[Rfam]
RNA sequence: UCCGACAAUGGCAAACCUGGCGAAAGCCAGGGACGCAAAGCUAUAGGGGCGUAACCGCGGUGUUUUUGAAGCCGAAAAGCCAGCCAGCUACCGAAG
Dot-bracket structure: (.((......((...((((((....))))))..[))..((((...(((((............................))).]))))))..))..)
This 96-nucleotide RNA sequence from Paenibacillus prosopidis belongs to the Rfam family "c-di-GMP-I-GGC riboswitch aptamer". The match comes from Rfam's covariance-model search (66 bits). Taxonomically the source falls in Paenibacillus (Bacteria, Bacillati, Bacillota, Paenibacillaceae).